RNA sequence: AGAGUCAUACGUUGAAGGCUUAGCCAGCUACGGCGGCCCCGAGUCAUGCGUCAACAACCGCGAGGGUGUGGGCGAAGCGUUGACAGGGGUACGCGCAGGCCGGGUAUUGAGCCGCGAAAUACAUGCCUCGCGCCGAGAGGCGCGGGAGGUCCGGGGUGCCGAGGCAGUGGAGACAUGCCGAAGGCCACACCGGUGCUGCCGCAUUGGCGAGGCAGCGCCGGACCCCGCGCGGUCACAGACCC
Numbered sequence: 001a002g003a004g005u006c007a008u009a010c011g012u013u014g015a016a017g018g019c020u021u022a023g024c025c026a027g028c029u030a031c032g033g034c035g036g037c038c039c040c041g042a043g044u045c046a047u048g049c050g051u052c053a054a055c056a057a058c059c060g061c062g063a064g065g066g067u068g069u070g071g072g073c074g075a076a077g078c079g080u081u082g083a084c085a086g087g088g089g090u091a092c093g094c095g096c097a098g099g100c101c102g103g104g105u106a107u108u109g110a111g112c113c114g115c116g117a118a119a120u121a122c123a124u125g126c127c128u129c130g131c132g133c134c135g136a137g138a139g140g141c142g143c144g145g146g147a148g149g150u151c152c153g154g155g156g157u158g159c160c161g162a163g164g165c166a167g168u169g170g171a172g173a174c175a176u177g178c179c180g181a182a183g184g185c186c187a188c189a190c191c192g193g194u195g196c197u198g199c200c201g202c203a204u205u206g207g208c209g210a211g212g213c214a215g216c217g218c219c220g221g222a223c224c225c226c227g228c229g230c231g232g233u234c235a236c237a238g239a240c241c242c
Stems, first nucleotide, its partner, number of pairs: 010035005017029004021210001023208002037089004043084004047079002049074004054069003058065002109234001111233006152227006158185003163179004190221011